[Rfam]
RNA sequence: GAUGGGGAAGCCGAAAACCAUAAAAUCGAGUAGGCG
Dot-bracket structure: .((((....[[[.....))))...........]]].
Numbered sequence: 001g002a003u004g005g006g007g008a009a010g011c012c013g014a015a016a017a018c019c020a021u022a023a024a025a026u027c028g029a030g031u032a033g034g035c036g
Stems, first nucleotide, its partner, number of pairs: 002021004010035003
This 36-nucleotide RNA sequence from Niastella koreensis belongs to the Rfam family "DUF805b RNA". The family's consensus secondary structure is taken from published work. The family's RNA type in Rfam is cis-regulatory element. It is one of the family's seed sequences. Taxonomically the source falls in Niastella koreensis (Bacteria, Bacteroidota, Chitinophagia, Chitinophagaceae).